[Rfam]
RNA sequence: GUAUUCCCCACUUGUAAGUCGCUUUGGAUAAAAGCGUCUGCUAAAUGAAUGUAA
Numbered sequence: 001g002u003a004u005u006c007c008c009c010a011c012u013u014g015u016a017a018g019u020c021g022c023u024u025u026g027g028a029u030a031a032a033a034g035c036g037u038c039u040g041c042u043a044a045a046u047g048a049a050u051g052u053a054a
Stems, first nucleotide, its partner, number of pairs: 013043001014041003020036006
This 54-nucleotide RNA from Labeo rohita belongs to the Rfam family "UnaL2 LINE 3' element". It scores 62 bits against the family's covariance model. The eel long interspersed element (LINE) UnaL2 and its partner short interspersed element (SINE) share a conserved 3' tail containing a stem-loop that is critical for their retrotransposition. Presumably, the first step of retrotransposition is the recognition of their 3' tails by UnaL2-encoded reverse transcriptase. The solution structure of a 17-nucleotide RNA derived from the 3' tail of UnaL2 was determined by NMR. Rfam classes the family as a cis-regulatory element.